[Rfam]
RNA sequence: AAGGAGGCUGUUAGAGUUAACAUUCCUGCCUGAUACCAUCUUCCUAGAUUGAAUCUGUCAUUUUUGUGCUUGCUGAACUAUUAGACUGUUCUGCUGGCCUUAACUGGCAGUAUAUCAGU
Number, nucleotide and partner (000 for none) at each position: 001a031002a000003g029004g000005a027006g025007g024008c000009u022010g021011u020012u000013a000014g000015a000016g000017u000018u000019a000020a011021c010022a009023u000024u007025c006026c000027u005028g000029c003030c000031u001032g000033a000034u000035a000036c000037c000038a000039u000040c000041u000042u000043c000044c000045u000046a000047g000048a000049u000050u000051g000052a000053a000054u000055c000056u112057g111058u110059c000060a000061u000062u000063u000064u000065u000066g000067u000068g098069c097070u096071u000072g094073c093074u000075g091076a000077a089078c088079u000080a000081u000082u000083a000084g000085a000086c000087u000088g078089u077090u000091c075092u000093g073094c072095u000096g070097g069098c068099c000100u000101u000102a000103a000104c000105u000106g000107g000108c000109a000110g058111u057112a056113u000114a000115u000116c000117a000118g000119u000
The record is a 119-nucleotide sequence from Digitaria exilis, which matches "Small nucleolar RNA snoR104" in Rfam. A search with the family's covariance model found it, with a score of 71 bits. The family's consensus secondary structure was predicted with WAR. The literature on the family includes a 2002 paper in Curr Biol by Marker et al., "Experimental RNomics: identification of 140 candidates for small non-messenger RNAs in the plant Arabidopsis thaliana".